Rfam assigns this 96-nucleotide RNA to the family "PhotoRC-II RNA". It is annotated as a cis-regulatory element.
[Rfam]
RNA sequence: CAACACUUUCCUGCACCCGUUAACCGAGACCUAUGGGUGGAUAAAUUACGUCUCUCAUAUCCAUCAGUGAAGGGAUUGAUGGAAAUAAAGUAUCGC
Dot-bracket structure: .............(((((((.....[[[[[..)))))))..........]]]]]......(((((((........)))))))..............
Numbered sequence: 001c002a003a004c005a006c007u008u009u010c011c012u013g014c015a016c017c018c019g020u021u022a023a024c025c026g027a028g029a030c031c032u033a034u035g036g037g038u039g040g041a042u043a044a045a046u047u048a049c050g051u052c053u054c055u056c057a058u059a060u061c062c063a064u065c066a067g068u069g070a071a072g073g074g075a076u077u078g079a080u081g082g083a084a085a086u087a088a089a090g091u092a093u094c095g096c
Stems, first nucleotide, its partner, number of pairs: 014039007026054005061082007